RNA sequence: UGGCUGUAAUGGUCAUAUGACUUGAGAGGUGCAUUGAAACCACGACCUCUUUCCCUUCACAAUGCCUAAGCGAGGGCCCAGUUCGAAUCCGGUGGUGCGCAGACCGACUCACGCAGGUAACUCGUGACGAAGGCGCGCUUAAGCAAUGAGGUUUACUGUCGAGGGAAGCAAUUCUGCAGACACAAUCUCACCAUUGGAUGGCGGUGCUGGACUACCCUCACUCUGGUUUGGGAAAUGGCGUUGUGGACUGAUGAAUCAACCAGGUAUUU
Numbered sequence: 001u002g003g004c005u006g007u008a009a010u011g012g013u014c015a016u017a018u019g020a021c022u023u024g025a026g027a028g029g030u031g032c033a034u035u036g037a038a039a040c041c042a043c044g045a046c047c048u049c050u051u052u053c054c055c056u057u058c059a060c061a062a063u064g065c066c067u068a069a070g071c072g073a074g075g076g077c078c079c080a081g082u083u084c085g086a087a088u089c090c091g092g093u094g095g096u097g098c099g100c101a102g103a104c105c106g107a108c109u110c111a112c113g114c115a116g117g118u119a120a121c122u123c124g125u126g127a128c129g130a131a132g133g134c135g136c137g138c139u140u141a142a143g144c145a146a147u148g149a150g151g152u153u154u155a156c157u158g159u160c161g162a163g164g165g166a167a168g169c170a171a172u173u174c175u176g177c178a179g180a181c182a183c184a185a186u187c188u189c190a191c192c193a194u195u196g197g198a199u200g201g202c203g204g205u206g207c208u209g210g211a212c213u214a215c216c217c218u219c220a221c222u223c224u225g226g227u228u229u230g231g232g233a234a235a236u237g238g239c240g241u242u243g244u245g246g247a248c249u250g251a252u253g254a255a256u257c258a259a260c261c262a263g264g265u266a267u268u269u
Stems, first nucleotide, its partner, number of pairs: 001015004020265005028257003032253003037249001040246007048238002050235006066225001069222002072219005078210005083204003087199009098137003102134001104132001109127005115122002139143001147190007157182004165174003
This 269-nucleotide sequence from Saccharata proteae belongs to the Rfam family "Fungal signal recognition particle RNA". By type it is a non-coding RNA gene. On this family, see Wild et al., Curr Opin Struct Biol 2002: "Towards the structure of the mammalian signal recognition particle". Its family is annotated with signal recognition particle, endoplasmic reticulum targeting, SRP-dependent cotranslational protein targeting to membrane, signal sequence recognition and signal recognition particle, plasma membrane targeting in the Gene Ontology. The base pairs follow the family's consensus structure, which is taken from published work. Clan: SRP clan.